[Rfam]
RNA: Small nucleolar RNA U61
Organism: Nelumbo nucifera
RNA sequence: UCGCUAUGAUGAAGAUUUACGUUUGUGUACCAAAGGCGGGCUCUUCGGAGCCGUCGGUGACGGCAGCACAACCCUCUAAGAAGUUCUGAGCGG
Numbered sequence: 001u002c003g004c005u006a007u008g009a010u011g012a013a014g015a016u017u018u019a020c021g022u023u024u025g026u027g028u029a030c031c032a033a034a035g036g037c038g039g040g041c042u043c044u045u046c047g048g049a050g051c052c053g054u055c056g057g058u059g060a061c062g063g064c065a066g067c068a069c070a071a072c073c074c075u076c077u078a079a080g081a082a083g084u085u086c087u088g089a090g091c092g093g
Base pairs, nucleotide, nucleotide: 001093002092003091004090